[Rfam]
About this RNA:
This 94-nucleotide RNA from Vagococcus humatus belongs to the Rfam family "SAM-III riboswitch aptamer (SMK box)". Taxonomically the source falls in Vagococcus (Bacteria, Bacillota, Bacilli, Lactobacillales). It scores 70 bits against the family's covariance model. Gene Ontology terms of the family: methionine adenosyltransferase activity and regulation of translational initiation.

RNA sequence: GAAUGUUGCAAGAUUCCCGAUAGGAUUUAAAGAUUAGAUCUCUCUGUCUUUAAAGAUGCCUUGUAACCGGAAAAUAAAGGGGGAACAAAAAAUG
Numbered sequence: 001g002a003a004u005g006u007u008g009c010a011a012g013a014u015u016c017c018c019g020a021u022a023g024g025a026u027u028u029a030a031a032g033a034u035u036a037g038a039u040c041u042c043u044c045u046g047u048c049u050u051u052a053a054a055g056a057u058g059c060c061u062u063g064u065a066a067c068c069g070g071a072a073a074a075u076a077a078a079g080g081g082g083g084a085a086c087a088a089a090a091a092a093u094g
Stems, first nucleotide, its partner, number of pairs: 014085005022061003026054009067080002